Record summary:
c-di-GMP-I riboswitch aptamer: an 83-nucleotide sequence from Caloramator sp. E03.
[Rfam]
RNA sequence: AAUUGAAAAAGGCAAACUUGUCGAAAGACAGGGACGCAAAGCCUCGGGUCUAAAGCGUAUGCUAUGAUGGCUGGGCUACCAAU
Numbered sequence: 001a002a003u004u005g006a007a008a009a010a011g012g013c014a015a016a017c018u019u020g021u022c023g024a025a026a027g028a029c030a031g032g033g034a035c036g037c038a039a040a041g042c043c044u045c046g047g048g049u050c051u052a053a054a055g056c057g058u059a060u061g062c063u064a065u066g067a068u069g070g071c072u073g074g075g076c077u078a079c080c081a082a083u
Stems, first nucleotide, its partner, number of pairs: 012037002017032006040077004045073003048068003055062002

Clan: c-di-GMP_I riboswitch clan. The organism belongs to Caloramator, within Bacteria.